RNA sequence: CCAGGGGUUGACACCCCUGGCUAAUCACGGUCGCCCCUUCGGGGCU
Numbered sequence: 001c002c003a004g005g006g007g008u009u010g011a012c013a014c015c016c017c018u019g020g021c022u023a024a025u026c027a028c029g030g031u032c033g034c035c036c037c038u039u040c041g042g043g044g045c046u
Stems, first nucleotide, its partner, number of pairs: 001020008033045005
RNA: Acido-Lenti-1 RNA
Organism: Gemmataceae bacterium